[Rfam]
RNA sequence: UCUUUACGACAGGGGAGCGCCCCAGCGCUGAGAGUGCGGCCCGCGACACGCGUGCAGCCGCAGACCCUCGAACCUGCUCCGGUUAGCACCGGCGAAGGGAGUCGGUAAUUCUCAGGA
Numbered sequence: 001u002c003u004u005u006a007c008g009a010c011a012g013g014g015g016a017g018c019g020c021c022c023c024a025g026c027g028c029u030g031a032g033a034g035u036g037c038g039g040c041c042c043g044c045g046a047c048a049c050g051c052g053u054g055c056a057g058c059c060g061c062a063g064a065c066c067c068u069c070g071a072a073c074c075u076g077c078u079c080c081g082g083u084u085a086g087c088a089c090c091g092g093c094g095a096a097g098g099g100a101g102u103c104g105g106u107a108a109u110u111c112u113c114a115g116g117a
Stems, first nucleotide, its partner, number of pairs: 007104004011068004017028004035062005073098003079092004
Description: Rfam assigns this 117-nucleotide RNA from Intrasporangium calvum to the family "TPP riboswitch aptamer (THI element)".